The record is an 86-nucleotide sequence from Medicago truncatula, which matches "MIR2617 microRNA precursor family" in Rfam.
[Rfam]
RNA sequence: UUGCAAUGUGGCAUGCCCGUUUGGUGCUUAACUCUGAUUAAUAUUUGUUAUUUAAUUGCUUUUGGGUAACGGGGUGUUACAAUUUG
Number, nucleotide and partner (000 for none) at each position: 001u000002u086003g085004c000005a083006a000007u081008g080009u079010g078011g077012c076013a075014u074015g000016c073017c072018c071019g070020u069021u068022u000023g000024g000025u000026g000027c000028u000029u000030a000031a000032c000033u000034c000035u000036g000037a000038u000039u000040a000041a000042u000043a000044u000045u000046u000047g000048u000049u000050a000051u000052u000053u000054a000055a000056u000057u000058g000059c000060u000061u000062u000063u000064g000065g000066g000067u000068a021069a020070c019071g018072g017073g016074g014075u013076g012077u011078u010079a009080c008081a007082a000083u005084u000085u003086g002
The base pairs follow the family's consensus structure, which was predicted with RNAalifold. The match comes from Rfam's covariance-model search (76 bits).